[Rfam]
Overview:
The record is a 116-nucleotide RNA, which matches "COG3610-DE RNA" in Rfam. It is one of the family's seed sequences. The base pairs follow the family's consensus structure, which is taken from published work. The family's RNA type in Rfam is small RNA.

RNA sequence: GACGAGUCGAGGAAAACGCGAGAUGCGUUCUUUGACAGAGAUCAUCUAGACUUGCGAAGUCAAAGCACGGGAAGUGCUGAUGAUGGGCUACUUUGGCUGUGAAACAAAGACCCUGA
Numbered sequence: 001g002a003c004g005a006g007u008c009g010a011g012g013a014a015a016a017c018g019c020g021a022g023a024u025g026c027g028u029u030c031u032u033u034g035a036c037a038g039a040g041a042u043c044a045u046c047u048a049g050a051c052u053u054g055c056g057a058a059g060u061c062a063a064a065g066c067a068c069g070g071g072a073a074g075u076g077c078u079g080a081u082g083a084u085g086g087g088c089u090a091c092u093u094u095g096g097c098u099g100u101g102a103a104a105c106a107a108a109g110a111c112c113c114u115g116a
Stems, first nucleotide, its partner, number of pairs: 006036008016028004041084006049061004064078005085113003091109005